[Rfam]
This 67-nucleotide sequence from Apis mellifera belongs to the Rfam family "mir-3747 microRNA precursor family". The sequence is in the family's curated seed alignment. Rfam links the family to the GO terms RISC complex and miRNA-mediated post-transcriptional gene silencing. The family has 2 seed sequences and 6 matches in Rfam 15.1.

RNA sequence: GUUCUGCGAGAUUUCUUUUCAGUCGUGAAUAAAAAUAUUAUUCACUGCUGGAAAAAAAUCUCGCGGA
Number, nucleotide and partner (000 for none) at each position: 001g000002u000003u000004c066005u065006g000007c063008g062009a061010g060011a059012u058013u057014u056015c000016u054017u053018u052019u051020c050021a049022g048023u047024c000025g045026u044027g043028a042029a041030u040031a039032a038033a000034a000035a000036u000037a000038u032039u031040a030041u029042u028043c027044a026045c025046u000047g023048c022049u021050g020051g019052a018053a017054a016055a000056a014057a013058a012059u011060c010061u009062c008063g007064c000065g005066g004067a000